[Rfam]
The family of this 168-nucleotide sequence from Butyrivibrio sp. Su6 is "Clostridiales-1 RNA". It scores 102 bits against the family's covariance model. Rfam classes the family as a small RNA. The organism belongs to Butyrivibrio, within Bacteria.

RNA sequence: AGUGAUAAAGGGAUGAGAAGUUACAAGUAUGCAUGCUUGCAUGCAUAUACUUGUAACCUUGAAGACCGAACAUACAUGAGGAAUAAAGAUAUGCGAAUUUAAUGAGCAUAUCGUGUUCCGAAUGUAUGUAGGAUUGCGAAAACGAAGUGGAGCAAUCCGUAUAUCACU
Numbered sequence: 001a002g003u004g005a006u007a008a009a010g011g012g013a014u015g016a017g018a019a020g021u022u023a024c025a026a027g028u029a030u031g032c033a034u035g036c037u038u039g040c041a042u043g044c045a046u047a048u049a050c051u052u053g054u055a056a057c058c059u060u061g062a063a064g065a066c067c068g069a070a071c072a073u074a075c076a077u078g079a080g081g082a083a084u085a086a087a088g089a090u091a092u093g094c095g096a097a098u099u100u101a102a103u104g105a106g107c108a109u110a111u112c113g114u115g116u117u118c119c120g121a122a123u124g125u126a127u128g129u130a131g132g133a134u135u136g137c138g139a140a141a142a143c144g145a146a147g148u149g150g151a152g153c154a155a156u157c158c159g160u161a162u163a164u165c166a167c168u
Base pairs, nucleotide, nucleotide: 001168002167003166004165005164006163007162011066014063017060018059020057021056022055023054024053025052026051027050028049029048030047031044032043033042034041035040070129071128072127073126074125075124076123077122080119081118082117083116088112089111090110091109092108093107094106131158132157133156134155135154136153137152142148143147